[Rfam]
RNA sequence: GCAGUGUCUCGUUCGGCGAGGCUCCUAUGCAAACACAGGUCACUGAUCUGACGACGUCGAGAGACGCCCAAGGUUAGGACAGGCUUUAUCGGAUUAAGGUUUAGCCCAAAGUGACUUCCAACGGAUACGUUGCAUAGUGCCAAAACCUAGACGCGGAGAUCGCUU
Numbered sequence: 001g002c003a004g005u006g007u008c009u010c011g012u013u014c015g016g017c018g019a020g021g022c023u024c025c026u027a028u029g030c031a032a033a034c035a036c037a038g039g040u041c042a043c044u045g046a047u048c049u050g051a052c053g054a055c056g057u058c059g060a061g062a063g064a065c066g067c068c069c070a071a072g073g074u075u076a077g078g079a080c081a082g083g084c085u086u087u088a089u090c091g092g093a094u095u096a097a098g099g100u101u102u103a104g105c106c107c108a109a110a111g112u113g114a115c116u117u118c119c120a121a122c123g124g125a126u127a128c129g130u131u132g133c134a135u136a137g138u139g140c141c142a143a144a145a146c147c148u149a150g151a152c153g154c155g156g157a158g159a160u161c162g163c164u165u
Base pairs, nucleotide, nucleotide: 006160007159008158009157010156011152012151013097015147016146020141021140022139025137026136027135028134029133030132031131032130039115040114041113042112043111045075046074047073048072049071055066056065057064058063082106083105084104085103088100089099090098117125118124119123